TPP riboswitch aptamer (THI element): a 102-nucleotide RNA from Halanaerobium saccharolyticum.
RNA sequence: UAAAUUUAACAGGGGAGCCUUCGGGCUGAGAUAAAGUAGCUGCUUUAACCCUUUGAACCUGAUCUGGAUAAUACCAGCGAAGGGAGUUGUGUGGAGUGAUUU
Numbered sequence: 001u002a003a004a005u006u007u008a009a010c011a012g013g014g015g016a017g018c019c020u021u022c023g024g025g026c027u028g029a030g031a032u033a034a035a036g037u038a039g040c041u042g043c044u045u046u047a048a049c050c051c052u053u054u055g056a057a058c059c060u061g062a063u064c065u066g067g068a069u070a071a072u073a074c075c076a077g078c079g080a081a082g083g084g085a086g087u088u089g090u091g092u093g094g095a096g097u098g099a100u101u102u
Base pairs, nucleotide, nucleotide: 007089008088009087010086011052012051013050014049017026018025019024033046034045035044036043037042058083059082060081064077065076066075067074